[Rfam]
RNA sequence: GAAUAAGUGCAUCUGGUGGAUGCCUUGGCGAUGAUAGGCGACGAAGGACGUGAUAGCCUGCGAUAAGCGUGGGGGAGCUGGCAAAGUGCUUUGAUCCCACGAUUUCCGAAUGGGGAAACCCGGCCCUUUUGGGUCAUCCUUGACUGAAUACAUAGGUCAUGUGAAGCGAACGCGGUGAACUGAAACAUCUAAGUAACCGCAGGAAAAGAAAUCAACCGAGAUUCCCAAAGUAGUGGCGAGCGAAAUGGGAAGAGCCUGUACGUGAUAGCAGUCGUGUUAAUAGAACGGAAUGGAAAGUCCGGCCAUAGUGGGUGAUAGCCCCGUAUAUGAAAGCACAAUUGUGGUACUAAGCGUACGAGAAGUAGGGCGGGACACGAGAAAUCCUGUUUGAAGAUGGGGGGACCAUCCUCCAAGGCUAAAUACUCAUCAUCGACCGAUAGUGAACCAGUACCGUGAGGGAAAGGCGAAAAGAACCCCGGGAGGGGAGUGAAAUAGAACCUGAAACCGGAUGCAUACAAA
Numbered sequence: 001g002a003a004u005a006a007g008u009g010c011a012u013c014u015g016g017u018g019g020a021u022g023c024c025u026u027g028g029c030g031a032u033g034a035u036a037g038g039c040g041a042c043g044a045a046g047g048a049c050g051u052g053a054u055a056g057c058c059u060g061c062g063a064u065a066a067g068c069g070u071g072g073g074g075g076a077g078c079u080g081g082c083a084a085a086g087u088g089c090u091u092u093g094a095u096c097c098c099a100c101g102a103u104u105u106c107c108g109a110a111u112g113g114g115g116a117a118a119c120c121c122g123g124c125c126c127u128u129u130u131g132g133g134u135c136a137u138c139c140u141u142g143a144c145u146g147a148a149u150a151c152a153u154a155g156g157u158c159a160u161g162u163g164a165a166g167c168g169a170a171c172g173c174g175g176u177g178a179a180c181u182g183a184a185a186c187a188u189c190u191a192a193g194u195a196a197c198c199g200c201a202g203g204a205a206a207a208g209a210a211a212u213c214a215a216c217c218g219a220g221a222u223u224c225c226c227a228a229a230g231u232a233g234u235g236g237c238g239a240g241c242g243a244a245a246u247g248g249g250a251a252g253a254g255c256c257u258g259u260a261c262g263u264g265a266u267a268g269c270a271g272u273c274g275u276g277u278u279a280a281u282a283g284a285a286c287g288g289a290a291u292g293g294a295a296a297g298u299c300c301g302g303c304c305a306u307a308g309u310g311g312g313u314g315a316u317a318g319c320c321c322c323g324u325a326u327a328u329g330a331a332a333g334c335a336c337a338a339u340u341g342u343g344g345u346a347c348u349a350a351g352c353g354u355a356c357g358a359g360a361a362g363u364a365g366g367g368c369g370g371g372a373c374a375c376g377a378g379a380a381a382u383c384c385u386g387u388u389u390g391a392a393g394a395u396g397g398g399g400g401g402a403c404c405a406u407c408c409u410c411c412a413a414g415g416c417u418a419a420a421u422a423c424u425c426a427u428c429a430u431c432g433a434c435c436g437a438u439a440g441u442g443a444a445c446c447a448g449u450a451c452c453g454u455g456a457g458g459g460a461a462a463g464g465c466g467a468a469a470a471g472a473a474c475c476c477c478g479g480g481a482g483g484g485g486a487g488u489g490a491a492a493u494a495g496a497a498c499c500u501g502a503a504a505c506c507g508g509a510u511g512c513a514u515a516c517a518a519a
Stems, first nucleotide, its partner, number of pairs: 007514010022499001023464002027435002029432007036424002038167002046107003049062003068101007077089002112121003122135005137164002139161001141159005171202001172200005182189002212219002222420001223250005233241002253417004261353002266344001268342005274336005280328003286301004304308001310322003365389008396411005451458002474485004

Rfam assigns this 519-nucleotide part of an RNA from Chitinibacter fontanus to the family "Bacterial large subunit ribosomal RNA". Rfam links the family to the GO terms ribosome and structural constituent of ribosome. The base pairs follow the family's consensus structure, which is taken from published work. Taxonomically the source falls in Chitinibacter (Bacteria, Pseudomonadota, Betaproteobacteria, Chitinibacteraceae).